[Rfam]
RNA sequence: AGUGCUAAACAAUGCGGCAGAAUAGACGUUACGGACCCGGGGGCGGUACCCGGCGCCUCCACCAGUUCCUCUUCUAAUGUCUCUAAACGAUAGGAGCGAGGGAGAAGAAGUGGCGGGGGCGAAAUAGAUUCGACGUGCGUGGUAAAGGACGCAAAGGCACUCGGUGGAGUCCCGCUGUUAUCGGGCUAAAUCAAAACGUGCAAACGAUAAUGCGCGUGUAGUUGCUCAAGCUGCGUAA
Numbered sequence: 001a002g003u004g005c006u007a008a009a010c011a012a013u014g015c016g017g018c019a020g021a022a023u024a025g026a027c028g029u030u031a032c033g034g035a036c037c038c039g040g041g042g043g044c045g046g047u048a049c050c051c052g053g054c055g056c057c058u059c060c061a062c063c064a065g066u067u068c069c070u071c072u073u074c075u076a077a078u079g080u081c082u083c084u085a086a087a088c089g090a091u092a093g094g095a096g097c098g099a100g101g102g103a104g105a106a107g108a109a110g111u112g113g114c115g116g117g118g119g120c121g122a123a124a125u126a127g128a129u130u131c132g133a134c135g136u137g138c139g140u141g142g143u144a145a146a147g148g149a150c151g152c153a154a155a156g157g158c159a160c161u162c163g164g165u166g167g168a169g170u171c172c173c174g175c176u177g178u179u180a181u182c183g184g185g186c187u188a189a190a191u192c193a194a195a196a197c198g199u200g201c202a203a204a205c206g207a208u209a210a211u212g213c214g215c216g217u218g219u220a221g222u223u224g225c226u227c228a229a230g231c232u233g234c235g236u237a238a
Base pairs, nucleotide, nucleotide: 001161002160003159004158005157015151016150018148027139028138029137031136032135033134037053038052039051040050041049054121055120056119057118058117059116060115162177163176164175165174

Source information
Rfam assigns this 238-nucleotide RNA sequence from an Alphaproteobacteria bacterium to the family "permuted transfer-messenger RNA". Bacterial tmRNA, also known as 10Sa RNA or SsrA, is named for its dual tRNA and mRNA-like properties. The family's consensus secondary structure is taken from published work. The source organism's lineage runs through Bacteria, Pseudomonadati, Pseudomonadota and Alphaproteobacteria. The family's RNA type in Rfam is non-coding RNA gene.